A member of the RNA family "Small nucleolar RNA SNORA77" from Apteryx owenii, 132 nucleotides long. For this family Rfam cites "A computational screen for mammalian pseudouridylation guide H/ACA RNAs" (Schattner et al., RNA, 2006). From the family's description: ACA63 (SNORA77) is a member of the H/ACA class of snoRNAs that guide the sites of modification of uridines to pseudouridines. This snoRNA was identified by computational screening and its expression in mouse experimentally verified by Northern blot and primer extension analysis. ACA63 is proposed to guide the pseudouridylation of 18S rRNA U814. It is annotated as an H/ACA-box small nucleolar RNA.
RNA sequence: GCAGACUCACUCUGUGCCGAACUGCAGUCUUCAGUUCAGGUGCUUUUUCUGUCUGCGAAAGUAAUAGUUCACGGGUGUGAGAAACACUUCUUUCAUGUAGAAGUCUGUUACAAUUGCUCUUGGGACAUUGUU
Numbered sequence: 001g002c003a004g005a006c007u008c009a010c011u012c013u014g015u016g017c018c019g020a021a022c023u024g025c026a027g028u029c030u031u032c033a034g035u036u037c038a039g040g041u042g043c044u045u046u047u048u049c050u051g052u053c054u055g056c057g058a059a060a061g062u063a064a065u066a067g068u069u070c071a072c073g074g075g076u077g078u079g080a081g082a083a084a085c086a087c088u089u090c091u092u093u094c095a096u097g098u099a100g101a102a103g104u105c106u107g108u109u110a111c112a113a114u115u116g117c118u119c120u121u122g123g124g125a126c127a128u129u130g131u132u
Base pairs, nucleotide, nucleotide: 001056002055003054004053005052006051014043015042016041017040018039019037020036022034023033024032069123070122071121073119074118075117077114078113082109